A member of the RNA family "FMN riboswitch aptamer (RFN element)" from Azospirillum sp. TSH58, 153 nucleotides long. The base pairs follow the family's consensus structure, which is taken from published work.

RNA sequence: GCUUGUUCUCAGGGCAGGGUGAAAAUCCCGACCGGCGGUAGCCCCUCGCACGAGGGGGAGCCCGCGAGCGCUCCCGACCGUCAGGCCGGGAGGUCAGCAGAUCCGGUUCAAGGCCGGAGCCGACGGUGACAGUCCGGAUGGAAGAGGACGAGC
Numbered sequence: 001g002c003u004u005g006u007u008c009u010c011a012g013g014g015c016a017g018g019g020u021g022a023a024a025a026u027c028c029c030g031a032c033c034g035g036c037g038g039u040a041g042c043c044c045c046u047c048g049c050a051c052g053a054g055g056g057g058g059a060g061c062c063c064g065c066g067a068g069c070g071c072u073c074c075c076g077a078c079c080g081u082c083a084g085g086c087c088g089g090g091a092g093g094u095c096a097g098c099a100g101a102u103c104c105g106g107u108u109c110a111a112g113g114c115c116g117g118a119g120c121c122g123a124c125g126g127u128g129a130c131a132g133u134c135c136g137g138a139u140g141g142a143a144g145a146g147g148a149c150g151a152g153c
Stems, first nucleotide, its partner, number of pairs: 003151008017029003031133002033122002035065004060120002068098002102118005124136003
The match comes from Rfam's covariance-model search (101 bits). NCBI's taxonomy places the organism under Bacteria, Pseudomonadati, Alphaproteobacteria, Azospirillaceae, Azospirillum.